The family of this 105-nucleotide sequence is "DUF3577 RNA".
It is one of the family's seed sequences.

[Rfam]
RNA sequence: CGAAUCGGAUAUGCGUGAGCAAUCACGCGAAACUCGUCUGCAAUCCCGGCAUCACCGCGCAAGCGGUGUGGCGACUUCUUCAACUGCUGCAACAGCAGCACCUCA
Numbered sequence: 001c002g003a004a005u006c007g008g009a010u011a012u013g014c015g016u017g018a019g020c021a022a023u024c025a026c027g028c029g030a031a032a033c034u035c036g037u038c039u040g041c042a043a044u045c046c047c048g049g050c051a052u053c054a055c056c057g058c059g060c061a062a063g064c065g066g067u068g069u070g071g072c073g074a075c076u077u078c079u080u081c082a083a084c085u086g087c088u089g090c091a092a093c094a095g096c097a098g099c100a101c102c103u104c105a
Base pairs, nucleotide, nucleotide: 013028014027015026016025017024018023034074035073036072037071038070053068054067055066056065057064058063085100086099087098088097089096090095
The family's RNA type in Rfam is cis-regulatory element. The base pairs follow the family's consensus structure, which is taken from published work.